[Rfam]
Rfam assigns this 101-nucleotide RNA sequence from Homo sapiens to the family "Y RNA". The base pairs follow the family's consensus structure, which is taken from published work. Y RNAs are components of the Ro ribonucleoprotein particle (Ro RNP), in association with Ro60 and La proteins. It is annotated as a non-coding RNA gene.
RNA sequence: GGCUGGUCUGAGUGCAUGGUGUCUACAACUAAUUGAUCAAAACUAGUUACAGAUUUCUUUGUUCCUCCUCCACUUCCACUGCUUCACUUGGCUAGCCUAAA
Numbered sequence: 001g002g003c004u005g006g007u008c009u010g011a012g013u014g015c016a017u018g019g020u021g022u023c024u025a026c027a028a029c030u031a032a033u034u035g036a037u038c039a040a041a042a043c044u045a046g047u048u049a050c051a052g053a054u055u056u057c058u059u060u061g062u063u064c065c066u067c068c069u070c071c072a073c074u075u076c077c078a079c080u081g082c083u084u085c086a087c088u089u090g091g092c093u094a095g096c097c098u099a100a101a
Base pairs, nucleotide, nucleotide: 001097002096003095004094005093006092007091008090010089011088014085016080017078018077019076027063028062029061031059032058